Rfam assigns this 172-nucleotide RNA from Pontiella sulfatireligans to the family "Group II catalytic intron D1-D4-3". A search with the family's covariance model found it, with a score of 106 bits. The source organism's lineage runs through Bacteria, Pseudomonadati, Kiritimatiellales, Pontiellaceae and Pontiella.

[Rfam]
RNA sequence: GUAACCGCGAGGAACCGUGGGAAGGAAGCCGAAGGCAAAGCACUGGCCCGAUGAACAAGAACCGCAUACGAGGCGGCCAUGCCGGAUGAGGAGGCGCAAAUCUCUAAAGUCCGAAACCUGUACGGAAGGCAUGGACUUAUAGGCGGCGAGUAUAAGUGUGAUGUUAGAAUGU
Dot-bracket structure: (...((....))...).............((....(...(((((.((.((...........((((.(.....(.(.(((((((((((..((((........))))...))))...............))))))).).)..).)))))).))...))))).......)..)).